[Rfam]
RNA sequence: GCCAUUAGCUCAGUUGGUAGAGCAUCUGACUUUUAAUCAGAGGGUCGAAGGUUCGAGUCCUUCAGUCGGCA
Numbered sequence: 001g002c003c004a005u006u007a008g009c010u011c012a013g014u015u016g017g018u019a020g021a022g023c024a025u026c027u028g029a030c031u032u033u034u035a036a037u038c039a040g041a042g043g044g045u046c047g048a049a050g051g052u053u054c055g056a057g058u059c060c061u062u063c064a065g066u067c068g069g070c071a
Stems, first nucleotide, its partner, number of pairs: 001070003005064001008023004025041005047063005